[Rfam]
RNA: Plastid-ycf3 group II-D1 intron
RNA sequence: AUUCCUUCUAUCGUGUAUCCCUGAUUGACCCAGCCUUAGAUGCUUCA
Numbered sequence: 001a002u003u004c005c006u007u008c009u010a011u012c013g014u015g016u017a018u019c020c021c022u023g024a025u026u027g028a029c030c031c032a033g034c035c036u037u038a039g040a041u042g043c044u045u046c047a
Base pairs, nucleotide, nucleotide: 010025011024012023013022032044033043034042
Dot-bracket structure: .........((((........))))......(((.......)))...